[Rfam]
RNA sequence: GACGUGUCAUCGGGAGAGACUGCCCCUGUUUCACAGGGCAGCGCCGAAGGAGCAACCGCCCCGGAAACUCUCAGGCAAAAGGACCGAUGACAUGCA
Numbered sequence: 001g002a003c004g005u006g007u008c009a010u011c012g013g014g015a016g017a018g019a020c021u022g023c024c025c026c027u028g029u030u031u032c033a034c035a036g037g038g039c040a041g042c043g044c045c046g047a048a049g050g051a052g053c054a055a056c057c058g059c060c061c062c063g064g065a066a067a068c069u070c071u072c073a074g075g076c077a078a079a080a081g082g083a084c085c086g087a088u089g090a091c092a093u094g095c096a
Base pairs, nucleotide, nucleotide: 006091007090008089009088010087011086012085013084020041021040022039023038024037025036043076044075045074046072047071050070051069052068056064057063
RNA: Glycine riboswitch aptamer
Organism: Limnohabitans sp. JirII-31